This 352-nucleotide sequence from Aminivibrio pyruvatiphilus belongs to the Rfam family "transfer-messenger RNA".
Taxonomically the source falls in Aminivibrio (Bacteria, Synergistota, Synergistales, Aminobacteriaceae).
Rfam describes the family as follows. Bacterial tmRNA, also known as 10Sa RNA or SsrA, is named for its dual tRNA and mRNA-like properties.
The family's consensus secondary structure is taken from published work.
RNA sequence: GGGGCCGACUGGUCUCGACGGCAAGACGGAGGGUCUGGAAGAGCGGGCCGAGGUCGUCCGAACCUCGUUAAACGCGGACACAAAAACAAACGUCAACAACAAUAACUACGCACUGGCUGCUUAAUGCAGUCACGUCUUACGCGGCAGCAGCCGCCGUUUCUGCGUAAGGCGACACAAAAUGGCGGAUGCUUUUCGGGGAGUGUCUCCGGUCCCGGAAAAAAGAUAAGGGGGCUUGGGCGAGAAAAUCCUGUUCCCGGGAGUUUUGAGCCGACACUAAAUCGGGAACUACGCCCGUAGCGCUUCCACGGCUGGCCCUUGUCGGACGGGGGUUCGAUUCCCCCCGGCUCCACCA
Numbered sequence: 001g002g003g004g005c006c007g008a009c010u011g012g013u014c015u016c017g018a019c020g021g022c023a024a025g026a027c028g029g030a031g032g033g034u035c036u037g038g039a040a041g042a043g044c045g046g047g048c049c050g051a052g053g054u055c056g057u058c059c060g061a062a063c064c065u066c067g068u069u070a071a072a073c074g075c076g077g078a079c080a081c082a083a084a085a086a087c088a089a090a091c092g093u094c095a096a097c098a099a100c101a102a103u104a105a106c107u108a109c110g111c112a113c114u115g116g117c118u119g120c121u122u123a124a125u126g127c128a129g130u131c132a133c134g135u136c137u138u139a140c141g142c143g144g145c146a147g148c149a150g151c152c153g154c155c156g157u158u159u160c161u162g163c164g165u166a167a168g169g170c171g172a173c174a175c176a177a178a179a180u181g182g183c184g185g186a187u188g189c190u191u192u193u194c195g196g197g198g199a200g201u202g203u204c205u206c207c208g209g210u211c212c213c214g215g216a217a218a219a220a221a222g223a224u225a226a227g228g229g230g231g232c233u234u235g236g237g238c239g240a241g242a243a244a245a246u247c248c249u250g251u252u253c254c255c256g257g258g259a260g261u262u263u264u265g266a267g268c269c270g271a272c273a274c275u276a277a278a279u280c281g282g283g284a285a286c287u288a289c290g291c292c293c294g295u296a297g298c299g300c301u302u303c304c305a306c307g308g309c310u311g312g313c314c315c316u317u318g319u320c321g322g323a324c325g326g327g328g329g330u331u332c333g334a335u336u337c338c339c340c341c342c343g344g345c346u347c348c349a350c351c352a
Base pairs, nucleotide, nucleotide: 001348002347003346004345005344006343007342019321020320021319022318023317024316025315031310032309034307036305037304038303039302040301041300043298044294045293046292047291048290049067050066051065052064053063056079057078058077059076060075114132115131116130117129118128119127120126133171134170135169136168137167138166139165140164141163142162144160146158147157151185152184153183154182155181156180190218191217192216193215194214195213196212197211202233204231205230206229207228236269237268238267241264242263243262244261246259247258248257250286251285252284253283254281256279325341326340327339328338329337